RNA sequence: UGUCGGGAUAGGAGGGGAGUUUGCGUGCCCUCUUCCGCAAAUCGCAAAUGGCGGUCCGAAUGCCAAGGGGCGGCUCAGCCGGUCCAUGGGUUCCCAUAGGCGGACGUCGAUGUCUCGCCCCCACGUGACUCGGGUGUCAUGAACCGAAGCCGGAAGGAGUCGGGAAAUGAAUAACCGGGGGAUCAGGUCAGGCCGGGAACGGAGCAGCCCUACUUGGGGCCAUGAGUGCCGUGGGGAAACGGGACGGAGGAAGCCUAUGGAUUUGGCCCGUGGAUACGAGGGUCCACCUUUGGAAUUCCCACCU
Numbered sequence: 001u002g003u004c005g006g007g008a009u010a011g012g013a014g015g016g017g018a019g020u021u022u023g024c025g026u027g028c029c030c031u032c033u034u035c036c037g038c039a040a041a042u043c044g045c046a047a048a049u050g051g052c053g054g055u056c057c058g059a060a061u062g063c064c065a066a067g068g069g070g071c072g073g074c075u076c077a078g079c080c081g082g083u084c085c086a087u088g089g090g091u092u093c094c095c096a097u098a099g100g101c102g103g104a105c106g107u108c109g110a111u112g113u114c115u116c117g118c119c120c121c122c123a124c125g126u127g128a129c130u131c132g133g134g135u136g137u138c139a140u141g142a143a144c145c146g147a148a149g150c151c152g153g154a155a156g157g158a159g160u161c162g163g164g165a166a167a168u169g170a171a172u173a174a175c176c177g178g179g180g181g182a183u184c185a186g187g188u189c190a191g192g193c194c195g196g197g198a199a200c201g202g203a204g205c206a207g208c209c210c211u212a213c214u215u216g217g218g219g220c221c222a223u224g225a226g227u228g229c230c231g232u233g234g235g236g237a238a239a240c241g242g243g244a245c246g247g248a249g250g251a252a253g254c255c256u257a258u259g260g261a262u263u264u265g266g267c268c269c270g271u272g273g274a275u276a277c278g279a280g281g282g283u284c285c286a287c288c289u290u291u292g293g294a295a296u297u298c299c300c301a302c303c304u
Base pairs, nucleotide, nucleotide: 002303005300006299007298008297011057012056013055014031015030016029017028019026020025035054036053037052038051061295063293064292065291066290067289068288069287072284073283074282075281078277082275083274084273085272086271087270088269089268090267091266092265094260095259096258097257098256099255100254101253105249107247111246112245113244114243115242116241117240120235121234122233123232124231125230127229128227129226130225131224132221133220134172135171137170138169139168140167144163145162146161147160150157151156175218176217178215179214180213186209187208188207193202194201195200